Rfam assigns this 109-nucleotide sequence from Patiria miniata to the family "Vault RNA". A search with the family's covariance model found it, with a score of 57 bits. On this family, see Stadler et al., Mol Biol Evol 2009: "Evolution of Vault RNAs". It is annotated as a non-coding RNA gene.

RNA sequence: UUGCCGGCGUUGGCCGAGUGGAUACUUCGAUAUUCUCACACAACUUGUCUAAAUGGUUACGGGCUAGGCUCGAAACCUACAAGAUCCACUGGCGCGAUCCGGCAUUUUA
Numbered sequence: 001u002u003g004c005c006g007g008c009g010u011u012g013g014c015c016g017a018g019u020g021g022a023u024a025c026u027u028c029g030a031u032a033u034u035c036u037c038a039c040a041c042a043a044c045u046u047g048u049c050u051a052a053a054u055g056g057u058u059a060c061g062g063g064c065u066a067g068g069c070u071c072g073a074a075a076c077c078u079a080c081a082a083g084a085u086c087c088a089c090u091g092g093c094g095c096g097a098u099c100c101g102g103c104a105u106u107u108u109a
Stems, first nucleotide, its partner, number of pairs: 002104006013093004018089004026074005